A member of the RNA family "tRNA" from Aspergillus clavatus, 81 nucleotides long. The match comes from Rfam's covariance-model search (56 bits). Taxonomically the source falls in Aspergillus clavatus (Eukaryota, Opisthokonta, Ascomycota, Aspergillaceae).
RNA sequence: GUCAGCGUGCCCGAGUGGUUAAGGGGAGUGAUUAGAAAUCACUUGGCUUCGGCCGCACAGGUUCGAGUCCUGUCGCUGACG
Numbered sequence: 001g002u003c004a005g006c007g008u009g010c011c012c013g014a015g016u017g018g019u020u021a022a023g024g025g026g027a028g029u030g031a032u033u034a035g036a037a038a039u040c041a042c043u044u045g046g047c048u049u050c051g052g053c054c055g056c057a058c059a060g061g062u063u064c065g066a067g068u069c070c071u072g073u074c075g076c077u078g079a080c081g
Base pairs, nucleotide, nucleotide: 001080002079003078004077005076006075007074010025011024012023027043028042029041030040031039057073058072059071060070061069